[Rfam]
RNA sequence: UCACUCGGAAGUUAUCCUGAAUCCGAGCCAUUAAACACCGAACAGCUUAUUCCCCCUUUUCUUUCAUCCUUUUUUCAUACGGAGUGUGUGUAUACGAAAGAUACAGUUCCCUUGACAUCAAAUACUCAAAACCGAAAACACAAACCCGCUGCCUGAACAGCGGGUUUGUGUUUU
Numbered sequence: 001u002c003a004c005u006c007g008g009a010a011g012u013u014a015u016c017c018u019g020a021a022u023c024c025g026a027g028c029c030a031u032u033a034a035a036c037a038c039c040g041a042a043c044a045g046c047u048u049a050u051u052c053c054c055c056c057u058u059u060u061c062u063u064u065c066a067u068c069c070u071u072u073u074u075u076c077a078u079a080c081g082g083a084g085u086g087u088g089u090g091u092a093u094a095c096g097a098a099a100g101a102u103a104c105a106g107u108u109c110c111c112u113u114g115a116c117a118u119c120a121a122a123u124a125c126u127c128a129a130a131a132c133c134g135a136a137a138a139c140a141c142a143a144a145c146c147c148g149c150u151g152c153c154u155g156a157a158c159a160g161c162g163g164g165u166u167u168g169u170g171u172u173u174u
Stems, first nucleotide, its partner, number of pairs: 007110004017100002022094001023088001026085001028082002135174016

The family of this 174-nucleotide sequence from Neisseria animaloris is "NrrF RNA". Rfam classes the family as an antisense RNA. Gene Ontology term of the family: regulation of translation, ncRNA-mediated. It scores 61 bits against the family's covariance model.